[Rfam]
RNA sequence: GAACCCUUGCCAAACACUCUGGCCCUUACCCCCCUUCUCUCCGGAGAAGGGUUCAACCUGUGGUUCUGGCCUAUUUUUGGAGCAAGGAGAUUGAUUUCGUCCGAUUACUCACCGCGGUAUCUUGGGUCUUUUUAAAGGGCUGUGGAUAUGGUGGUCCAUAUCUUUGGGCGACAU
Dot-bracket structure: ......(((...........((((...(((.(((((((......)))))))..........)))...))))...........))).............((((.........((((.((((((.....................)))))).))))...........)))).....
Numbered sequence: 001g002a003a004c005c006c007u008u009g010c011c012a013a014a015c016a017c018u019c020u021g022g023c024c025c026u027u028a029c030c031c032c033c034c035u036u037c038u039c040u041c042c043g044g045a046g047a048a049g050g051g052u053u054c055a056a057c058c059u060g061u062g063g064u065u066c067u068g069g070c071c072u073a074u075u076u077u078u079g080g081a082g083c084a085a086g087g088a089g090a091u092u093g094a095u096u097u098c099g100u101c102c103g104a105u106u107a108c109u110c111a112c113c114g115c116g117g118u119a120u121c122u123u124g125g126g127u128c129u130u131u132u133u134a135a136a137g138g139g140c141u142g143u144g145g146a147u148a149u150g151g152u153g154g155u156c157c158a159u160a161u162c163u164u165u166g167g168g169c170g171a172c173a174u
Stems, first nucleotide, its partner, number of pairs: 007085003021071004028064003032051007099169004112154004117149006
This 174-nucleotide RNA from Lachnellula occidentalis belongs to the Rfam family "Small nucleolar RNA snR80". For this family Rfam cites "Genome-wide searching for pseudouridylation guide snoRNAs: analysis of the Saccharomyces cerevisiae genome" (Schattner et al., Nucleic Acids Res, 2004). Clan: SNORA28 clan. The source organism's lineage runs through Eukaryota, Fungi, Ascomycota, Pezizomycotina and Lachnellula. Gene Ontology terms of the family: nucleolus and RNA processing.